[Rfam]
RNA sequence: GGCGUCGGUGAUGCUCUGUUACCUACAUUGUUUGAGGUCUCCCUGAGAAAACCAGUGUUAUCUGAGACGCCC
Numbered sequence: 001g002g003c004g005u006c007g008g009u010g011a012u013g014c015u016c017u018g019u020u021a022c023c024u025a026c027a028u029u030g031u032u033u034g035a036g037g038u039c040u041c042c043c044u045g046a047g048a049a050a051a052c053c054a055g056u057g058u059u060a061u062c063u064g065a066g067a068c069g070c071c072c
Stems, first nucleotide, its partner, number of pairs: 001071001003069004
A member of the RNA family "Small nucleolar RNA SNORD34" from Sarcophilus harrisii, 72 nucleotides long. The base pairs follow the family's consensus structure, which was predicted with PFOLD. From the family's description: snoRNA U34 is found in intron 5 of the ribosomal protein L13a gene in humans.